[Rfam]
RNA sequence: CCGUUCAACUCGUUCCCCCGUAGAGGGGAACUACGGGAG
Numbered sequence: 001c002c003g004u005u006c007a008a009c010u011c012g013u014u015c016c017c018c019c020g021u022a023g024a025g026g027g028g029a030a031c032u033a034c035g036g037g038a039g
Base pairs, nucleotide, nucleotide: 001036002035003034004033012031013030014029015028016027017026018025
RNA: THF-II riboswitch (folE RNA)
Organism: Nitratireductor sp. StC3